[Rfam]
RNA sequence: GAUGAUUGCGAUGAUGAUAUUUAAGCUCCCUCUUCUGAUUAAGGUUGAGGAAAAUCGCUGGCAGAAUCGAACCUAAAACCUUAAAUUGCCACCACUGAGUAA
Numbered sequence: 001g002a003u004g005a006u007u008g009c010g011a012u013g014a015u016g017a018u019a020u021u022u023a024a025g026c027u028c029c030c031u032c033u034u035c036u037g038a039u040u041a042a043g044g045u046u047g048a049g050g051a052a053a054a055u056c057g058c059u060g061g062c063a064g065a066a067u068c069g070a071a072c073c074u075a076a077a078a079c080c081u082u083a084a085a086u087u088g089c090c091a092c093c094a095c096u097g098a099g100u101a102a
Stems, first nucleotide, its partner, number of pairs: 006102004

Shown here is a 102-nucleotide sequence from Morus notabilis, a member of the family "Small nucleolar RNA R30/Z108". Rfam describes the family as follows. snoR30 is a C/D box small nucleolar RNA which acts as a methylation guide for 18S ribosomal RNA in plants. It scores 81 bits against the family's covariance model. Rfam links the family to the GO terms RNA processing and nucleolus.